The family of this 357-nucleotide part of an RNA from Methanobacterium alkalithermotolerans is "Archaeal large subunit ribosomal RNA". NCBI's taxonomy places the organism under Archaea, Methanobacteriati, Methanobacteria, Methanobacteriaceae, Methanobacterium. On this family, see Yusupov et al., Science 2001: "Crystal structure of the ribosome at 5.5 A resolution".

RNA sequence: UAGGGUAAACUAGCUAAGGGAAAUCGGCAAAAUGGCCCCGUAACUUUGGAAUAAGGGGUGCCAGCCAUGUAGAUGGCUGGUCUCAGUGACCAGGGGGGCCCGACUGUUUAAUAAAAACAUAGCUCCUAGCAAGCCCGAAAGGGUGUGUACUGGGGGCGACACCUGCCCAGUGCCGGCACGUGAAGCCAGGGUACAACUUGGUGAAGCGCCGGUAAACGGCGGGGGUAACUAUAACCCUCUUAAGGUAGCGAAAUGCCUUGCCGGAUAAGUACCGGCCUGCAUGAAUGGUAGAACGAGGUCCCCACUGUCCCUAGCUAGAACCUAGUGAACCUGCUAUUCUGGUGCACAAGCCAGAGA
Numbered sequence: 001u002a003g004g005g006u007a008a009a010c011u012a013g014c015u016a017a018g019g020g021a022a023a024u025c026g027g028c029a030a031a032a033u034g035g036c037c038c039c040g041u042a043a044c045u046u047u048g049g050a051a052u053a054a055g056g057g058g059u060g061c062c063a064g065c066c067a068u069g070u071a072g073a074u075g076g077c078u079g080g081u082c083u084c085a086g087u088g089a090c091c092a093g094g095g096g097g098g099c100c101c102g103a104c105u106g107u108u109u110a111a112u113a114a115a116a117a118c119a120u121a122g123c124u125c126c127u128a129g130c131a132a133g134c135c136c137g138a139a140a141g142g143g144u145g146u147g148u149a150c151u152g153g154g155g156g157c158g159a160c161a162c163c164u165g166c167c168c169a170g171u172g173c174c175g176g177c178a179c180g181u182g183a184a185g186c187c188a189g190g191g192u193a194c195a196a197c198u199u200g201g202u203g204a205a206g207c208g209c210c211g212g213u214a215a216a217c218g219g220c221g222g223g224g225g226u227a228a229c230u231a232u233a234a235c236c237c238u239c240u241u242a243a244g245g246u247a248g249c250g251a252a253a254u255g256c257c258u259u260g261c262c263g264g265a266u267a268a269g270u271a272c273c274g275g276c277c278u279g280c281a282u283g284a285a286u287g288g289u290a291g292a293a294c295g296a297g298g299u300c301c302c303c304a305c306u307g308u309c310c311c312u313a314g315c316u317a318g319a320a321c322c323u324a325g326u327g328a329a330c331c332u333g334c335u336a337u338u339c340u341g342g343u344g345c346a347c348a349a350g351c352c353a354g355a356g357a
Base pairs, nucleotide, nucleotide: 001324002323003322004321010318011317012316013315014314015313016312018310019309020308035059036058037057038056039055044049060081061080062079063078064077065076066075067074068073082086094303095302096301097300098299099298100297101295102294105119106118107117122157123156124155125154126153127152128151129150130147133144134143135142136141161289162288163287165220166219167218170217171216172213173212174211175210176209179208180207181206186201187200188199189198190197221239222238223237224236225235226234240244260276261275262274263273264272338355339354340353341352342351